The family of this 203-nucleotide RNA from Oryza glumipatula is "MIR812 microRNA precursor family".
Taxonomically the source falls in Oryza (Eukaryota, Streptophytina, Petrosaviidae, commelinids).
Its family is annotated with RISC complex and miRNA-mediated post-transcriptional gene silencing in the Gene Ontology.
The family has 22 seed sequences and 57,451 matches in Rfam 15.1.
RNA sequence: CUUAAAGACGUCGUUGACUUUUUAUCAAAUGUUUGAUCAUUCGUCUUAUUCAAAGAAUUUACGUAAUUAUAAUUUAUUUUAUUAUGAGUUGUUUUAUAACUCAUAGUAUUUUAUGUGUGAUUUAUAUCUUAUACAUUUGCAUAAAAUUUUUGAAUAAGACGAAUGGUCAAACAUGUGAGAAAAAGUCAACGGUGUCAUCUAUU
Numbered sequence: 001c002u003u004a005a006a007g008a009c010g011u012c013g014u015u016g017a018c019u020u021u022u023u024a025u026c027a028a029a030u031g032u033u034u035g036a037u038c039a040u041u042c043g044u045c046u047u048a049u050u051c052a053a054a055g056a057a058u059u060u061a062c063g064u065a066a067u068u069a070u071a072a073u074u075u076a077u078u079u080u081a082u083u084a085u086g087a088g089u090u091g092u093u094u095u096a097u098a099a100c101u102c103a104u105a106g107u108a109u110u111u112u113a114u115g116u117g118u119g120a121u122u123u124a125u126a127u128c129u130u131a132u133a134c135a136u137u138u139g140c141a142u143a144a145a146a147u148u149u150u151u152g153a154a155u156a157a158g159a160c161g162a163a164u165g166g167u168c169a170a171a172c173a174u175g176u177g178a179g180a181a182a183a184a185g186u187c188a189a190c191g192g193u194g195u196c197a198u199c200u201a202u203u
Stems, first nucleotide, its partner, number of pairs: 026177002029174021